[Rfam]
RNA sequence: CUCUUAUCGAGAGCAGGCGGAGGGACUGGCCCGAUGAAGCCCGGCAACCAACACCGCGCUUGACCAUAGCGGGGUGUCAGGUGCUAAAUCCUGCGAAGCCCAUGGCGCUUCGGGAGAUGAGAG
Numbered sequence: 001c002u003c004u005u006a007u008c009g010a011g012a013g014c015a016g017g018c019g020g021a022g023g024g025a026c027u028g029g030c031c032c033g034a035u036g037a038a039g040c041c042c043g044g045c046a047a048c049c050a051a052c053a054c055c056g057c058g059c060u061u062g063a064c065c066a067u068a069g070c071g072g073g074g075u076g077u078c079a080g081g082u083g084c085u086a087a088a089u090c091c092u093g094c095g096a097a098g099c100c101c102a103u104g105g106c107g108c109u110u111c112g113g114g115a116g117a118u119g120a121g122a123g
Stems, first nucleotide, its partner, number of pairs: 001123008013042001016041003022032003026093001028091002043085004048081002050077001089115001094112006
The family of this 123-nucleotide sequence from Kyrpidia spormannii is "SAM riboswitch aptamer (S box leader)".
The base pairs follow the family's consensus structure, which is taken from published work.
The literature on the family includes a 1998 paper in Mol Microbiol by Grundy and Henkin, "The S box regulon: a new global transcription termination control system for methionine and cysteine biosynthesis genes in gram-positive bacteria".